[Rfam]
Rfam assigns this 171-nucleotide sequence from Trichonephila clavata to the family "Wolbachia sRNA 46". The family's RNA type in Rfam is small RNA.

RNA sequence: UUCGCAGCAGGUCUUAUGAUGUCAUUCCAGUGCUUGACACUGGGAUCUAGCAAGCUUUGCUUGCAAAUAAGUCUAAUACGCGUCGCGUUUUAUGCCAAAACACAAUUGGAGUUACAUGCAAAAUAGAUCCCAGUGUCAAGCACUGGGAUGACAAAAAAAGGAGCACUGGGA
Numbered sequence: 001u002u003c004g005c006a007g008c009a010g011g012u013c014u015u016a017u018g019a020u021g022u023c024a025u026u027c028c029a030g031u032g033c034u035u036g037a038c039a040c041u042g043g044g045a046u047c048u049a050g051c052a053a054g055c056u057u058u059g060c061u062u063g064c065a066a067a068u069a070a071g072u073c074u075a076a077u078a079c080g081c082g083u084c085g086c087g088u089u090u091u092a093u094g095c096c097a098a099a100a101c102a103c104a105a106u107u108g109g110a111g112u113u114a115c116a117u118g119c120a121a122a123a124u125a126g127a128u129c130c131c132a133g134u135g136u137c138a139a140g141c142a143c144u145g146g147g148a149u150g151a152c153a154a155a156a157a158a159a160g161g162a163g164c165a166c167u168g169g170g171a
Stems, first nucleotide, its partner, number of pairs: 011166002014163002020153030
Dot-bracket structure: ..........((.((....((((((((((((((((((((((((((((((..........................................................................))))))))))))))))))))))))))))))........)).)).....
Source information
On this family, see Mayoral et al., Proc Natl Acad Sci U S A 2014: "Wolbachia small noncoding RNAs and their role in cross-kingdom communications". NCBI's taxonomy places the organism under Eukaryota, Metazoa, Protostomia, Chelicerata, Trichonephila. Pairs were carried over by alignment from the consensus structure.